Shown here is an 87-nucleotide RNA from Lawsonibacter faecis, a member of the family "c-di-GMP-I riboswitch aptamer".
It scores 62 bits against the family's covariance model.
Pairs were carried over by alignment from the consensus structure, which is taken from published work.
GEMM was predicted in a large-scale screen for bacterial structured RNA regulatory elements.

RNA sequence: UCGAACAGUUGGCAAACCCGGUGAAAGCCGGCGGCGCAAAACUAUAGGGUCUAACUCCCGCAUGGGAUAUGACAGCCAGUUGUACCG
Numbered sequence: 001u002c003g004a005a006c007a008g009u010u011g012g013c014a015a016a017c018c019c020g021g022u023g024a025a026a027g028c029c030g031g032c033g034g035c036g037c038a039a040a041a042c043u044a045u046a047g048g049g050u051c052u053a054a055c056u057c058c059c060g061c062a063u064g065g066g067a068u069a070u071g072a073c074a075g076c077c078a079g080u081u082g083u084a085c086c087g
Stems, first nucleotide, its partner, number of pairs: 012037002018031005040081004047077002049073003056067004